[Rfam]
Nucleotides: 122
Base pairs, nucleotide, nucleotide: 002051003050004049005048006047007046008045009044010043014040015039016038017037019035058116061113062112063111064110072100073099074098075097077095079093080092081091083090084089
Number, partner (000 for none) and nucleotide at each position: 001000g002051u003050g004049c005048c006047c007046u008045u009044u010043u011000g012000a013000g014040g015039u016038u017037g018000a019035u020000g021000c022000a023000g024000u025000u026000c027000u028000u029000a030000a031000a032000a033000a034000g035019g036000c037017u038016a039015a040014c041000a042000c043010a044009g045008a046007a047006g048005g049004g050003u051002a052000g053000a054000a055000u056000u057000a058116g059000u060000c061113u062112u063111c064110a065000u066000a067000a068000a069000a070000c071000c072100c073099a074098g075097a076000a077095a078000a079093g080092a081091g082000u083090u084089u085000a086000u087000a088000a089084a090083g091081u092080u093079c094000c095077u096000c097075u098074u099073u100072g101000u102000a103000u104000c105000c106000u107000g108000u109000c110064u111063g112062g113061a114000a115000u116058c117000a118000c119000a120000g121000u122000u